[Rfam]
RNA sequence: AAUAAUCCUCGGUAGGUGAGGCUACUAUAAGGAUAUGGGUUGCUGCCGUAAAAGAAUGGAAACAUUCUGCACUGGUCAACAGAUUUUGCCGAACAAAGAAGGCUUGAUCUAAUGCAAUUUCACUGCCUGGUAGAGCUAAAACUUGAACGAGAAAGUAUUGUA
Numbered sequence: 001a002a003u004a005a006u007c008c009u010c011g012g013u014a015g016g017u018g019a020g021g022c023u024a025c026u027a028u029a030a031g032g033a034u035a036u037g038g039g040u041u042g043c044u045g046c047c048g049u050a051a052a053a054g055a056a057u058g059g060a061a062a063c064a065u066u067c068u069g070c071a072c073u074g075g076u077c078a079a080c081a082g083a084u085u086u087u088g089c090c091g092a093a094c095a096a097a098g099a100a101g102g103c104u105u106g107a108u109c110u111a112a113u114g115c116a117a118u119u120u121c122a123c124u125g126c127c128u129g130g131u132a133g134a135g136c137u138a139a140a141a142c143u144u145g146a147a148c149g150a151g152a153a154a155g156u157a158u159u160g161u162a
Stems, first nucleotide, its partner, number of pairs: 005158002008155002011148001013100001015143003020137003025133004030128003039118005046074001048072002055066004082109004088103003
Source information: The family of this 162-nucleotide sequence from Clostridium sp. HMP27 is "M-box riboswitch aptamer (ykoK leader)". The literature on the family includes a 2007 paper in Cell by Dann CE 3rd et al., "Structure and mechanism of a metal-sensing regulatory RNA". Rfam links the family to the GO terms regulation of gene expression and response to magnesium ion. About the family: M-box riboswitch, also know as ykoK leader is described as a metaloregulatory RNA that sense divalent metals and function as a genetic control element of genes related to divalent metal transport in bacteria. It was first reported upstream of the B.subtilis ykoK gene and genes with related functions in other bacteria. Rfam 15.1 lists 1,095 matches to the family in 932 species. Pairs were carried over by alignment from the consensus structure.